RNA sequence: GGCCGGACACCGCCGAAUCGCCGUACGACGUCCCGUGGACGUCCGAGGUGAACCGGGGACCCACCGCAGUUCUGGGGUGAGUUCUCCCGUCGGGCCGGCUCGCCGGCGCGCGGGGGAUAGGGCAGAUCUUCCCAGCCCGAACCCGUCAGCUAACUCGGUAGGCGGUGACAGUGGAAGAA
Numbered sequence: 001g002g003c004c005g006g007a008c009a010c011c012g013c014c015g016a017a018u019c020g021c022c023g024u025a026c027g028a029c030g031u032c033c034c035g036u037g038g039a040c041g042u043c044c045g046a047g048g049u050g051a052a053c054c055g056g057g058g059a060c061c062c063a064c065c066g067c068a069g070u071u072c073u074g075g076g077g078u079g080a081g082u083u084c085u086c087c088c089g090u091c092g093g094g095c096c097g098g099c100u101c102g103c104c105g106g107c108g109c110g111c112g113g114g115g116g117a118u119a120g121g122g123c124a125g126a127u128c129u130u131c132c133c134a135g136c137c138c139g140a141a142c143c144c145g146u147c148a149g150c151u152a153a154c155u156c157g158g159u160a161g162g163c164g165g166u167g168a169c170a171g172u173g174g175a176a177g178a179a
Stems, first nucleotide, its partner, number of pairs: 011164004018051005052159006062074002075144003083117008120138004